[Rfam]
RNA sequence: UUCUGACAAUGGCAAACUGAUCGAAAGAUUGGGACGCAAAGUUACAGAUCUAAGGCCAAAUGGCUAUGAUGGCUGAGCCGCCUUA
Numbered sequence: 001u002u003c004u005g006a007c008a009a010u011g012g013c014a015a016a017c018u019g020a021u022c023g024a025a026a027g028a029u030u031g032g033g034a035c036g037c038a039a040a041g042u043u044a045c046a047g048a049u050c051u052a053a054g055g056c057c058a059a060a061u062g063g064c065u066a067u068g069a070u071g072g073c074u075g076a077g078c079c080g081c082c083u084u085a
Stems, first nucleotide, its partner, number of pairs: 012037002017032006041078003045075003048070003055064003
Dot-bracket structure: ...........((...((((((....))))))...))...(((.((((((....(((....)))...)))..)))))).......
RNA: c-di-GMP-I riboswitch aptamer
Organism: Domibacillus mangrovi